The family of this 48-nucleotide RNA is "DUF3800-XI RNA". It is annotated as a small RNA. The sequence is in the family's curated seed alignment.
RNA sequence: UGGGCUGGCUGAAAAGCCCUGGUCCACCGAAUGGCGGGGAUUUCCCCG
Numbered sequence: 001u002g003g004g005c006u007g008g009c010u011g012a013a014a015a016g017c018c019c020u021g022g023u024c025c026a027c028c029g030a031a032u033g034g035c036g037g038g039g040a041u042u043u044c045c046c047c048g
Base pairs, nucleotide, nucleotide: 001026002025003024004023005022006021007018008017009016010015